The record is a 118-nucleotide sequence from Nesterenkonia alkaliphila, which matches "SAM (S-adenosyl methionine) riboswitch aptamer" in Rfam. Lineage of the source: Bacteria > Bacillati > Micrococcales > Micrococcaceae > Nesterenkonia.

RNA sequence: GGUCAAGAGUGCCAGCGCAAAACCCCGGUUUGCUGGCCGGCAACCCUCCAGUUCGCGGUGGGGUGCCCCGGGUGACGACCUGGCCGCACGGAACACCCCGUGACGGCAAGCGCGGACC
Numbered sequence: 001g002g003u004c005a006a007g008a009g010u011g012c013c014a015g016c017g018c019a020a021a022a023c024c025c026c027g028g029u030u031u032g033c034u035g036g037c038c039g040g041c042a043a044c045c046c047u048c049c050a051g052u053u054c055g056c057g058g059u060g061g062g063g064u065g066c067c068c069c070g071g072g073u074g075a076c077g078a079c080c081u082g083g084c085c086g087c088a089c090g091g092a093a094c095a096c097c098c099c100g101u102g103a104c105g106g107c108a109a110g111c112g113c114g115g116a117c118c
Base pairs, nucleotide, nucleotide: 001080002079003078004077009038011037012036013035014034015033016032021030022029039067040066041065044063045062046061048058049057083107084106085105086104087102088101089100090099091098
The family has 40 seed sequences and 2,360 matches in Rfam 15.1. Its family is annotated with regulation of gene expression and S-adenosylmethionine metabolic process in the Gene Ontology. Rfam's curators write: SAM-IV is a mRNA element that regulates gene expression via direct sensing of S-adenosylmethionine (SAM or AdoMet). SAM-IV riboswitches share conserved nucleotide positions with the previously described SAM-I riboswitches sequence analysis and molecular recognition experiments suggest that SAM-I and SAM-IV riboswitches share similar ligand binding sites, but have different scaffolds.